[Rfam]
Overview: This 119-nucleotide sequence from Paenibacillus apis belongs to the Rfam family "SAM riboswitch aptamer (S box leader)". The match comes from Rfam's covariance-model search (76 bits).
RNA sequence: UUCUUAUCAAGAGCAGGUGGAGGGACUAGCCCGAUGAAACCCGGCAACCGGCGAUACGUCGCACGGUGCUAAUUCUUGCAGAACAUGAAGUGCAUACUUCGUGCUCUGAGAGAUGAGAG
Numbered sequence: 001u002u003c004u005u006a007u008c009a010a011g012a013g014c015a016g017g018u019g020g021a022g023g024g025a026c027u028a029g030c031c032c033g034a035u036g037a038a039a040c041c042c043g044g045c046a047a048c049c050g051g052c053g054a055u056a057c058g059u060c061g062c063a064c065g066g067u068g069c070u071a072a073u074u075c076u077u078g079c080a081g082a083a084c085a086u087g088a089a090g091u092g093c094a095u096a097c098u099u100c101g102u103g104c105u106c107u108g109a110g111a112g113a114u115g116a117g118a119g
Stems, first nucleotide, its partner, number of pairs: 001119008013042001016041003022032003026078001028076002043070004048066002051062004074111001079108004084103008
The source organism's lineage runs through Bacteria, Bacilli, Caryophanales, Paenibacillaceae and Paenibacillus.